[Rfam]
RNA sequence: AUGGGCGGCCGGAUGACCGCGGGGAGCCCCGGCUCCACGAGGAAAGUCCGGACUCCACCAGGCACGGUGCCGGGUAACGCCCGGCCGGGGCAACCCGAGGGAAAGCGCCACAGAGAACAGACCGCCUGCCGGACGCCCUUCGGGGGCCGGCGGCAAGGGUGAAACGGUGGGGCAAGAGCCCACCGCGGGACGGGCAACCGGACCGGCACGGCAAGCCCCACCGGGAGCAAUGCCAGAUAGGGAUCCUGCGCCGGAAACGGCAGGGCGGCCUGGGCCCGAGGGAUCCGGGUAGGCAGCUGGAGCCUCCGGGCGACCGGAGGCCGAGAGGAAUGGUCAUCCCGGGGGGAGACCCCCGGACAGGAUCCGGCUUACAGGCCGCCCAUGCCG
Numbered sequence: 001a002u003g004g005g006c007g008g009c010c011g012g013a014u015g016a017c018c019g020c021g022g023g024g025a026g027c028c029c030c031g032g033c034u035c036c037a038c039g040a041g042g043a044a045a046g047u048c049c050g051g052a053c054u055c056c057a058c059c060a061g062g063c064a065c066g067g068u069g070c071c072g073g074g075u076a077a078c079g080c081c082c083g084g085c086c087g088g089g090g091c092a093a094c095c096c097g098a099g100g101g102a103a104a105g106c107g108c109c110a111c112a113g114a115g116a117a118c119a120g121a122c123c124g125c126c127u128g129c130c131g132g133a134c135g136c137c138c139u140u141c142g143g144g145g146g147c148c149g150g151c152g153g154c155a156a157g158g159g160u161g162a163a164a165c166g167g168u169g170g171g172g173c174a175a176g177a178g179c180c181c182a183c184c185g186c187g188g189g190a191c192g193g194g195c196a197a198c199c200g201g202a203c204c205g206g207c208a209c210g211g212c213a214a215g216c217c218c219c220a221c222c223g224g225g226a227g228c229a230a231u232g233c234c235a236g237a238u239a240g241g242g243a244u245c246c247u248g249c250g251c252c253g254g255a256a257a258c259g260g261c262a263g264g265g266c267g268g269c270c271u272g273g274g275c276c277c278g279a280g281g282g283a284u285c286c287g288g289g290u291a292g293g294c295a296g297c298u299g300g301a302g303c304c305u306c307c308g309g310g311c312g313a314c315c316g317g318a319g320g321c322c323g324a325g326a327g328g329a330a331u332g333g334u335c336a337u338c339c340c341g342g343g344g345g346g347a348g349a350c351c352c353c354c355g356g357a358c359a360g361g362a363u364c365c366g367g368c369u370u371a372c373a374g375g376c377c378g379c380c381c382a383u384g385c386c387g
Base pairs, nucleotide, nucleotide: 001383002382003381004380005379006378007377008376009375010374011372012338013337014336015335016334017333018332020039021038023036024035025034026033027032044370045369046368048367049366050365051364052363053227054226055225056224060271061270062269063268065223066222067221068220069219070084071083072082073081074080085099086097087096088095089094100218101217105216106215107212108211109210122158123157124154125153126152128151129150130149131148132147166184167183168182169181170180171179185207186205187204188203191200192199193198231295232294233293234292241286242285243284244283245282246281263277264276265275266274302321303320304319305318306317307316308315309314